[Rfam]
RNA sequence: GCGCAGUGCCGGGCCCCUCUGACGGAAGCUCAUGCUCCGUGAUGUCGGAACUGCUCC
Number, nucleotide and partner (000 for none) at each position: 001g000002c000003g000004c000005a000006g051007u050008g000009c048010c047011g046012g045013g000014c000015c000016c000017c000018u000019c000020u000021g000022a040023c039024g038025g037026a000027a036028g035029c034030u000031c000032a000033u000034g029035c028036u027037c025038c024039g023040u022041g000042a000043u000044g000045u012046c011047g010048g009049a000050a007051c006052u000053g000054c000055u000056c000057c000

This 57-nucleotide RNA from Devosia enhydra belongs to the Rfam family "terC RNA". The family's consensus secondary structure is taken from published work. Lineage of the source: Bacteria > Pseudomonadati > Pseudomonadota > Devosiaceae > Devosia. It scores 54 bits against the family's covariance model.